The family of this 58-nucleotide RNA sequence from Desulfotomaculum nigrificans is "Fluoride riboswitch aptamer (crcB RNA motif)". A search with the family's covariance model found it, with a score of 50 bits. Rfam links the family to the GO terms response to fluoride and positive regulation of gene expression. Taxonomically the source falls in Desulfotomaculum nigrificans (Bacteria, Clostridia, Desulfotomaculaceae, Desulfotomaculum).

RNA sequence: AAAUUGAACGGCGAUGGAGUUCGCCUAACGCUGCCAAGCUGAUGACUCCUACCUUUGU
Numbered sequence: 001a002a003a004u005u006g007a008a009c010g011g012c013g014a015u016g017g018a019g020u021u022c023g024c025c026u027a028a029c030g031c032u033g034c035c036a037a038g039c040u041g042a043u044g045a046c047u048c049c050u051a052c053c054u055u056u057g058u
Base pairs, nucleotide, nucleotide: 010025011024012023013022016049017048018047019046020045021044030039031038032037